[Rfam]
RNA sequence: GGCGUGUUUCGGGGUCGGUGAAAGUCCGAGCCGGCGGUGAUAGUCCGCGACCCGCGCAAGCGGUUGAUGGGGUGAAACUCCCCAACCGACGGUGAAAGUCCGGAUGGGAGAAACACGCC
Dot-bracket structure: ..((((((((.....(((.......))).[[((((((.....[[))))...((........))....(((((.......)))))]])).(((.....]]))).......))))))))..
Numbered sequence: 001g002g003c004g005u006g007u008u009u010c011g012g013g014g015u016c017g018g019u020g021a022a023a024g025u026c027c028g029a030g031c032c033g034g035c036g037g038u039g040a041u042a043g044u045c046c047g048c049g050a051c052c053c054g055c056g057c058a059a060g061c062g063g064u065u066g067a068u069g070g071g072g073u074g075a076a077a078c079u080c081c082c083c084a085a086c087c088g089a090c091g092g093u094g095a096a097a098g099u100c101c102g103g104a105u106g107g108g109a110g111a112a113a114c115a116c117g118c119c
Stems, first nucleotide, its partner, number of pairs: 003117008016028003030099002032088002034048004043086002052063002068084005090102003
The record is a 119-nucleotide RNA from Flaviflexus salsibiostraticola, which matches "FMN riboswitch aptamer (RFN element)" in Rfam. Rfam describes the family as follows. The RFN element is a highly conserved domain that is found frequently in the 5'-untranslated regions of prokaryotic mRNAs that encode for flavin mononucleotide (FMN) biosynthesis and transport proteins.